[Rfam]
RNA: L31-Actinobacteria ribosomal protein leader
Organism: Mycolicibacterium tokaiense
RNA sequence: CAGGUUCCGGUUCACGCCCGCAAGCCAGGUUUUGGAGUUCAGGGCGACCCGGCGACC
Numbered sequence: 001c002a003g004g005u006u007c008c009g010g011u012u013c014a015c016g017c018c019c020g021c022a023a024g025c026c027a028g029g030u031u032u033u034g035g036a037g038u039u040c041a042g043g044g045c046g047a048c049c050c051g052g053c054g055a056c057c
Base pairs, nucleotide, nucleotide: 003057004056005055007052008051009050010049015046016045017044018043019042022039023038